[Rfam]
RNA: Pseudomonadales-1 RNA
RNA sequence: CCAGUGCGAUUUCGUCACGUACUGAGUGAGCCUCAGAGUAAAUCAUAAAAUUGGGGAGUGACUCUCCCGACCUUAAAAGAAUUGAAAGCCAAGAAGUUAGAUUGAUAGCUCAUUUCGAGAUGAUGGGUUGGUGAGUAGCGGUAGAUCAGUUGCCGAGCUGGUC
Numbered sequence: 001c002c003a004g005u006g007c008g009a010u011u012u013c014g015u016c017a018c019g020u021a022c023u024g025a026g027u028g029a030g031c032c033u034c035a036g037a038g039u040a041a042a043u044c045a046u047a048a049a050a051u052u053g054g055g056g057a058g059u060g061a062c063u064c065u066c067c068c069g070a071c072c073u074u075a076a077a078a079g080a081a082u083u084g085a086a087a088g089c090c091a092a093g094a095a096g097u098u099a100g101a102u103u104g105a106u107a108g109c110u111c112a113u114u115u116c117g118a119g120a121u122g123a124u125g126g127g128u129u130g131g132u133g134a135g136u137a138g139c140g141g142u143a144g145a146u147c148a149g150u151u152g153c154c155g156a157g158c159u160g161g162u163c
Stems, first nucleotide, its partner, number of pairs: 002024007014062004027112005049073001052070001054068005082141003088132005096124004102118004107114001144163007